Small nucleolar RNA SNORD2: a 64-nucleotide sequence from Dracunculus medinensis. The match comes from Rfam's covariance-model search (44 bits). A reference for the family is Zhou et al. (2004), "Identification of a novel box C/D snoRNA from mouse nucleolar cDNA library", Gene. Rfam classes the family as a C/D-box small nucleolar RNA. NCBI's taxonomy places the organism under Eukaryota, Opisthokonta, Nematoda, Chromadorea, Dracunculus.
RNA sequence: AUGUUCAAUGAUGGGACCAUCUUUCGGGUCUGAUGAAAUGAAGAUAAGAUAUUACUGAGAACGU
Numbered sequence: 001a002u003g004u005u006c007a008a009u010g011a012u013g014g015g016a017c018c019a020u021c022u023u024u025c026g027g028g029u030c031u032g033a034u035g036a037a038a039u040g041a042a043g044a045u046a047a048g049a050u051a052u053u054a055c056u057g058a059g060a061a062c063g064u
Base pairs, nucleotide, nucleotide: 001064002063003062004061005060006059